[Rfam]
RNA sequence: GGCAGAGUGGCCGAGUGGUUAAGGCGAUGGUCUUGAAUCGUGGGUUCCCAUGAUAAAGCCAACCAUUACGUUCGCGUGCGUAGGUUCGAAUCCUGCCUCUGUCG
Numbered sequence: 001g002g003c004a005g006a007g008u009g010g011c012c013g014a015g016u017g018g019u020u021a022a023g024g025c026g027a028u029g030g031u032c033u034u035g036a037a038u039c040g041u042g043g044g045u046u047c048c049c050a051u052g053a054u055a056a057a058g059c060c061a062a063c064c065a066u067u068a069c070g071u072u073c074g075c076g077u078g079c080g081u082a083g084g085u086u087c088g089a090a091u092c093c094u095g096c097c098u099c100u101g102u103c104g
Stems, first nucleotide, its partner, number of pairs: 001103007010025003027066005080096005
Dot-bracket structure: (((((((..(((..........))).(((((..............................))))).............(((((.......)))))))))))).

Shown here is a 104-nucleotide RNA sequence from Escovopsis weberi, a member of the family "tRNA".
Taxonomically the source falls in Escovopsis (Eukaryota, Opisthokonta, Pezizomycotina, Sordariomycetes).
From the family's description: Transfer RNA (tRNA) molecules are approximately 80 nucleotides in length.
It scores 49 bits against the family's covariance model.
The family's RNA type in Rfam is transfer RNA.